[Rfam]
RNA: Archaeal large subunit ribosomal RNA, nucleotides 2777 to 3062
RNA sequence: GGCCGUCUGAGGGGGAGGUACCCCUAGUACGAGAGGAACGGGGUGCCGUGGCCUCUAGUGUACCGGUUGUCCUGAGGGGCAAUGCCGGGCAGCCACGCCAUAAGGGGUUAUCGCUGAAGGCAUCUAAGCGAGAACCCUUCCCCGAAAAGAGACGGCCAUCUGCCUUCCAGUGAAAACUGGAGGACAGCGAGGGCUCCCGUAAAAUACGGGUUUGAUGGGGUGGGGGUGUAAGUCGCGAGGGCGAAAGCUCGAGCGAUUCAGCCCGCCACUCCCAACAGCCCGAGGC
Numbered sequence: 001g002g003c004c005g006u007c008u009g010a011g012g013g014g015g016a017g018g019u020a021c022c023c024c025u026a027g028u029a030c031g032a033g034a035g036g037a038a039c040g041g042g043g044u045g046c047c048g049u050g051g052c053c054u055c056u057a058g059u060g061u062a063c064c065g066g067u068u069g070u071c072c073u074g075a076g077g078g079g080c081a082a083u084g085c086c087g088g089g090c091a092g093c094c095a096c097g098c099c100a101u102a103a104g105g106g107g108u109u110a111u112c113g114c115u116g117a118a119g120g121c122a123u124c125u126a127a128g129c130g131a132g133a134a135c136c137c138u139u140c141c142c143c144g145a146a147a148a149g150a151g152a153c154g155g156c157c158a159u160c161u162g163c164c165u166u167c168c169a170g171u172g173a174a175a176a177c178u179g180g181a182g183g184a185c186a187g188c189g190a191g192g193g194c195u196c197c198c199g200u201a202a203a204a205u206a207c208g209g210g211u212u213u214g215a216u217g218g219g220g221u222g223g224g225g226g227u228g229u230a231a232g233u234c235g236c237g238a239g240g241g242c243g244a245a246a247g248c249u250c251g252a253g254c255g256a257u258u259c260a261g262c263c264c265g266c267c268a269c270u271c272c273c274a275a276c277a278g279c280c281c282g283a284g285g286c
Base pairs, nucleotide, nucleotide: 001157002156003155004154005153006152007151008150011143012142013141014140017047018046019045020044021043022042023041024040048101049100050099051098052097056095058093063088064087065086066085067084068081069080070079071078072077104138105137106136111131112130113129114128115127191281192280193279194278196210197209198208199207216274217273218272219270220269221268222267223266224264225263226262232257233256234255235254236253239250240249241248